[Rfam]
Rfam assigns this 99-nucleotide sequence from Alicyclobacillus acidocaldarius to the family "TPP riboswitch aptamer (THI element)". The base pairs follow the family's consensus structure, which is taken from published work. Taxonomically the source falls in Alicyclobacillus acidocaldarius subsp. acidocaldarius (Bacteria, Bacillati, Bacillota, Alicyclobacillaceae). A search with the family's covariance model found it, with a score of 72 bits.

RNA sequence: GGAUGCCACUAGGGGAGCGAAAGCUGAGACGGGGGACACCCCGAACCCUUUGAACCUGACCUGGGUAAUGCCAGCGUAGGAAAGUGGCGCAUGGGACCC
Numbered sequence: 001g002g003a004u005g006c007c008a009c010u011a012g013g014g015g016a017g018c019g020a021a022a023g024c025u026g027a028g029a030c031g032g033g034g035g036a037c038a039c040c041c042c043g044a045a046c047c048c049u050u051u052g053a054a055c056c057u058g059a060c061c062u063g064g065g066u067a068a069u070g071c072c073a074g075c076g077u078a079g080g081a082a083a084g085u086g087g088c089g090c091a092u093g094g095g096a097c098c099c
Stems, first nucleotide, its partner, number of pairs: 006087005011049004017024002031042004055080004061074004
Its family is annotated with thiamine pyrophosphate binding in the Gene Ontology.